[Rfam]
RNA sequence: AAAGGCAAUGAUGUGAAUUUCUUAUGCUAUACACAGAAUUUAAACCGUGUAGACAAAAAUUCUUCGCUUAUUUACUGAUGCCUUC
Numbered sequence: 001a002a003a004g005g006c007a008a009u010g011a012u013g014u015g016a017a018u019u020u021c022u023u024a025u026g027c028u029a030u031a032c033a034c035a036g037a038a039u040u041u042a043a044a045c046c047g048u049g050u051a052g053a054c055a056a057a058a059a060u061u062c063u064u065c066g067c068u069u070a071u072u073u074a075c076u077g078a079u080g081c082c083u084u085c
Base pairs, nucleotide, nucleotide: 003083004082005081006080007079